[Rfam]
RNA sequence: AGGCUAGCGAAAACACAGGCGUUUUGCUUACGUCAAUCACUGCGUCUGCACCUGUGCUACCCGAGA
Numbered sequence: 001a002g003g004c005u006a007g008c009g010a011a012a013a014c015a016c017a018g019g020c021g022u023u024u025u026g027c028u029u030a031c032g033u034c035a036a037u038c039a040c041u042g043c044g045u046c047u048g049c050a051c052c053u054g055u056g057c058u059a060c061c062c063g064a065g066a
Stems, first nucleotide, its partner, number of pairs: 002062002005059005016048007025039002
This 66-nucleotide RNA sequence from Trypanosoma brucei belongs to the Rfam family "Trypanosomatid snoRNA TB6Cs1H1". The literature on the family includes a 2005 paper in RNA by Liang et al., "A genome-wide analysis of C/D and H/ACA-like small nucleolar RNAs in Trypanosoma brucei reveals a trypanosome-specific pattern of rRNA modification". The family has 6 seed sequences and 100 matches in Rfam 15.1. Lineage of the source: Eukaryota > Discoba > Trypanosomatida > Trypanosomatidae > Trypanozoon.